Background:
Shown here is a 122-nucleotide RNA from Acetobacteroides hydrogenigenes, a member of the family "FMN riboswitch aptamer (RFN element)". Taxonomically the source falls in Acetobacteroides (Bacteria, Bacteroidota, Bacteroidia, Rikenellaceae). The base pairs follow the family's consensus structure, which is taken from published work.

[Rfam]
RNA sequence: AGAUUUCUUCGGGGCAGGGCGUAAAUCCCUACCGGCGGUUACAGUCCGCGACUCCUCUAUAGAGGACUGAUUUGGUGAAACUCCAAAACCGACAGUUACAGUCUGGAUGGAAGAAGAAGCUG
Numbered sequence: 001a002g003a004u005u006u007c008u009u010c011g012g013g014g015c016a017g018g019g020c021g022u023a024a025a026u027c028c029c030u031a032c033c034g035g036c037g038g039u040u041a042c043a044g045u046c047c048g049c050g051a052c053u054c055c056u057c058u059a060u061a062g063a064g065g066a067c068u069g070a071u072u073u074g075g076u077g078a079a080a081c082u083c084c085a086a087a088a089c090c091g092a093c094a095g096u097u098a099c100a101g102u103c104u105g106g107a108u109g110g111a112a113g114a115a116g117a118a119g120c121u122g
Stems, first nucleotide, its partner, number of pairs: 004119007017029003031102002033091002035049004044089002053066002071087005093105003